[Rfam]
Rfam assigns this 160-nucleotide RNA from Chelonia mydas to the family "U1 spliceosomal RNA". It is annotated as a spliceosomal small nuclear RNA. It scores 81 bits against the family's covariance model. On this family, see Kretzner et al., Proc Natl Acad Sci U S A 1990: "Saccharomyces cerevisiae U1 small nuclear RNA secondary structure contains both universal and yeast-specific domains". U1 is a small nuclear RNA (snRNA) component of the spliceosome (involved in pre-mRNA splicing). Its 5' end forms complementary base pairs with the 5' splice junction, thus defining the 5' donor site of an intron. There are significant differences in sequence and secondary structure between metazoan and yeast U1 snRNAs, the latter being much longer (568 nucleotides as compared to 164 nucleotides in human). The base pairs follow the family's consensus structure, which is taken from published work.
RNA sequence: GCACUGCUAGUACAGUGCAUGCCAUGACCACGAAGGUAGUUUUCCAAGGAUGAGGCUCAUCUGUUGCACUGCAGGUGUGCUGACCCCUGCAAUUUCCCCAAAUGCGGGAAACUUGACUGCAUAAUUUGUGGUAGUGGGGUACUGCAUUCACACUCCCCUG
Number, nucleotide and partner (000 for none) at each position: 001g000002c000003a000004c000005u000006g000007c000008u000009a000010g120011u119012a118013c000014a000015g045016u000017g043018c000019a041020u000021g040022c039023c000024a037025u036026g000027a000028c000029c000030a000031c000032g000033a000034a000035g000036g025037u024038a000039g022040u021041u019042u000043u017044c000045c015046a000047a088048g087049g086050a000051u000052g084053a000054g081055g080056c079057u000058c077059a076060u075061c074062u073063g000064u000065u000066g000067c000068a000069c000070u000071g000072c000073a062074g061075g060076u059077g058078u000079g056080c055081u054082g000083a000084c052085c000086c049087c048088u047089g000090c115091a114092a113093u111094u110095u109096c000097c107098c106099c000100a000101a000102a000103u000104g000105c000106g098107g097108g000109a095110a094111a093112c000113u092114u091115g090116a000117c000118u012119g011120c010121a000122u000123a000124a000125u000126u000127u000128g000129u000130g000131g000132u000133a000134g000135u000136g158137g157138g156139g155140u000141a154142c000143u152144g151145c000146a000147u000148u000149c000150a000151c144152a143153c000154u141155c139156c138157c137158c136159u000160g000